[Rfam]
Shown here is a 100-nucleotide RNA sequence from Saccharomyces mikatae, a member of the family "Small nucleolar RNA Z122". Rfam 15.1 lists 822 matches to the family in 247 species. Rfam links the family to the GO terms RNA processing and nucleolus. The organism belongs to Saccharomyces mikatae, within Eukaryota. A reference for the family is Chen et al. (2003), "The high diversity of snoRNAs in plants: identification and comparative study of 120 snoRNA genes from Oryza sativa", Nucleic Acids Res.
RNA sequence: UUUGUGAUGUGAUGACAAUUCCUUGAGCUAUAUAUUUUCUUGAGAUCCUCAAUGAAGAAAACGUCUCAUUAAAUGAUUUGCACGUCAGUCUGAUCACAAA
Numbered sequence: 001u002u003u004g005u006g007a008u009g010u011g012a013u014g015a016c017a018a019u020u021c022c023u024u025g026a027g028c029u030a031u032a033u034a035u036u037u038u039c040u041u042g043a044g045a046u047c048c049u050c051a052a053u054g055a056a057g058a059a060a061a062c063g064u065c066u067c068a069u070u071a072a073a074u075g076a077u078u079u080g081c082a083c084g085u086c087a088g089u090c091u092g093a094u095c096a097c098a099a100a
Stems, first nucleotide, its partner, number of pairs: 001100007